The record is an 86-nucleotide RNA sequence from Paenibacillus sp. KS1, which matches "Group II catalytic intron D1-D4-1" in Rfam. On this family, see Chu et al., EMBO J 2001: "Control of branch-site choice by a group II intron". The match comes from Rfam's covariance-model search (63 bits).
RNA sequence: UAACCAUGGCUGAGAAGCCGCGCUGAAUCUGCAGGAGUCAGCAGACGCCAUAGUACGCAGAUUGUUGCAACAAUCCGCGAAAGGGC
Numbered sequence: 001u002a003a004c005c006a007u008g009g010c011u012g013a014g015a016a017g018c019c020g021c022g023c024u025g026a027a028u029c030u031g032c033a034g035g036a037g038u039c040a041g042c043a044g045a046c047g048c049c050a051u052a053g054u055a056c057g058c059a060g061a062u063u064g065u066u067g068c069a070a071c072a073a074u075c076c077g078c079g080a081a082a083g084g085g086c
Base pairs, nucleotide, nucleotide: 001025002024005022007020008019009018010017011016037046038045039044047086048085049084056079057078058077060075061074062073063072